[Rfam]
RNA sequence: UGUCGGGGGGAGACUUGGACGCGACUUUGUCUAUCAGUCAGUCUUUUUCUCUCUCCUAUA
Numbered sequence: 001u002g003u004c005g006g007g008g009g010g011a012g013a014c015u016u017g018g019a020c021g022c023g024a025c026u027u028u029g030u031c032u033a034u035c036a037g038u039c040a041g042u043c044u045u046u047u048u049c050u051c052u053c054u055c056c057u058a059u060a
Base pairs, nucleotide, nucleotide: 001060002059003058005056006055007054008053010051011050012049013048017044018043019042020041024038025037026036
Overview:
mir-14 microRNA precursor family: a 60-nucleotide sequence from Operophtera brumata. Lineage of the source: Eukaryota > Metazoa > Neoptera > Geometroidea > Operophtera. The family's consensus secondary structure was predicted with RNAalifold. Its family is annotated with miRNA-mediated post-transcriptional gene silencing and RISC complex in the Gene Ontology.